[Rfam]
RNA sequence: UCUGGCGAUGACCGCGCUUGCCCUCGCUGAGAGCAGCGUUCGCUGAUGAGAGCACCUCUGUUCGCUCCGUGGAGCCAAGCCAGA
Number, nucleotide and partner (000 for none) at each position: 001u084002c083003u082004g081005g080006c079007g000008a000009u000010g000011a000012c000013c000014g000015c000016g000017c000018u000019u000020g000021c000022c000023c000024u000025c000026g000027c000028u000029g000030a000031g000032a000033g000034c000035a000036g000037c000038g000039u000040u000041c000042g000043c000044u000045g000046a000047u000048g000049a000050g000051a000052g000053c000054a000055c000056c000057u000058c000059u000060g000061u000062u000063c000064g000065c000066u000067c000068c000069g000070u000071g000072g000073a000074g000075c000076c000077a000078a000079g006080c005081c004082a003083g002084a001
Background: A member of the RNA family "Small nucleolar RNA SNORD103/SNORD85" from Oceanites oceanicus, 84 nucleotides long. The source organism's lineage runs through Eukaryota, Dipnotetrapodomorpha, Amniota, Aequornithes and Oceanites. Pairs were carried over by alignment from the consensus structure. Rfam 15.1 lists 1,349 matches to the family in 595 species. Rfam links the family to the GO terms RNA processing and nucleolus.